[Rfam]
The record is a 97-nucleotide sequence from Sporosarcina sp. Te-1, which matches "Guanidine-I riboswitch aptamer" in Rfam. Pairs were carried over by alignment from the consensus structure. About the family: This family represents a conserved RNA structure found upstream of the ykkC and yxkD genes in Bacillus subtilis and related genes in other bacteria. Its family is annotated with regulation of gene expression in the Gene Ontology.

RNA sequence: AUAAAAACUUUCUAGGGUUCCGCCUUUUUAGGGACUGGUCCGAGAGAAAGUGCAAAGAAUGAUUCUUUGUCCACGGAGGGAUAAAAGCCCGGGAGAU
Number, nucleotide and partner (000 for none) at each position: 001a000002u000003a000004a000005a000006a000007a051008c050009u049010u048011u047012c046013u000014a000015g041016g040017g000018u000019u000020c038021c037022g035023c032024c031025u030026u000027u000028u000029u000030a025031g024032g023033g000034a000035c022036u000037g021038g020039u000040c016041c015042g000043a000044g000045a000046g012047a011048a010049a009050g008051u007052g070053c069054a068055a067056a066057g065058a064059a063060u000061g000062a000063u059064u058065c057066u056067u055068u054069g053070u052071c000072c092073a000074c095075g000076g000077a000078g090079g089080g088081a000082u000083a000084a000085a000086a000087g000088c080089c079090c078091g000092g072093g000094a000095g074096a000097u000